[Rfam]
RNA: Bacterial large signal recognition particle RNA
RNA sequence: CCGUGCUAGAUGGGGAGGUAGCGGUGCCCUGUAACUCGCAAUCCGCUACAGCGAGGUUGAAUUCCUGCUAGAGGUUUUGUCGAUGUGAGGUUUGGUCCCUUAACGUGGUGUUGACGGUUGGGUCCUCCGCAAUGAGUACUCAUGAACCUGGUCAGGUCCGGAAGGAAGCAGCCAUAAGUGAGAUCACUCUUGUGCCGGAGGAUCGCCUAGCCCGAGCUGUUGUUAAGGGGUGCCGCUUGGAUCGCAAAUAUCGAUAGCAGGUGCACGG
Numbered sequence: 001c002c003g004u005g006c007u008a009g010a011u012g013g014g015g016a017g018g019u020a021g022c023g024g025u026g027c028c029c030u031g032u033a034a035c036u037c038g039c040a041a042u043c044c045g046c047u048a049c050a051g052c053g054a055g056g057u058u059g060a061a062u063u064c065c066u067g068c069u070a071g072a073g074g075u076u077u078u079g080u081c082g083a084u085g086u087g088a089g090g091u092u093u094g095g096u097c098c099c100u101u102a103a104c105g106u107g108g109u110g111u112u113g114a115c116g117g118u119u120g121g122g123u124c125c126u127c128c129g130c131a132a133u134g135a136g137u138a139c140u141c142a143u144g145a146a147c148c149u150g151g152u153c154a155g156g157u158c159c160g161g162a163a164g165g166a167a168g169c170a171g172c173c174a175u176a177a178g179u180g181a182g183a184u185c186a187c188u189c190u191u192g193u194g195c196c197g198g199a200g201g202a203u204c205g206c207c208u209a210g211c212c213c214g215a216g217c218u219g220u221u222g223u224u225a226a227g228g229g230g231u232g233c234c235g236c237u238u239g240g241a242u243c244g245c246a247a248a249u250a251u252c253g254a255u256a257g258c259a260g261g262u263g264c265a266c267g268g
Base pairs, nucleotide, nucleotide: 001268002267003266004265005264006263009058010057011056012030013029014028015027017025019023035055036054037053038052039051064261065260066259067258068257069256070255073252074251075250077248081244082243083242084241086239087238088237089236093232094231097229098228099227100226101225102224105221107218108217109216116212117211118210119209120208121207122206123205124201125200126199127198128197129196130192131191134189135188136187137186139182140181141180142179143178149174150173151172152171157166158165159164